[Rfam]
RNA sequence: GAUAGAAACAUAAUUGGGUGCAGUGUUGAUGAAAUGUUUCGAUGCCCUAAUGAAGAUUCAGAAGGAAUACGAACUUUCAUCAACGCUGCACUCAAUGAUGUUUCUU
Numbered sequence: 001g002a003u004a005g006a007a008a009c010a011u012a013a014u015u016g017g018g019u020g021c022a023g024u025g026u027u028g029a030u031g032a033a034a035u036g037u038u039u040c041g042a043u044g045c046c047c048u049a050a051u052g053a054a055g056a057u058u059c060a061g062a063a064g065g066a067a068u069a070c071g072a073a074c075u076u077u078c079a080u081c082a083a084c085g086c087u088g089c090a091c092u093c094a095a096u097g098a099u100g101u102u103u104c105u106u
Base pairs, nucleotide, nucleotide: 006103007102008101009100010099011098013096014095015094016093017092018091019090020089021088022087023086024085025084026083027082028081030079031078032077
RNA: MIR397 microRNA precursor family
Organism: Malus baccata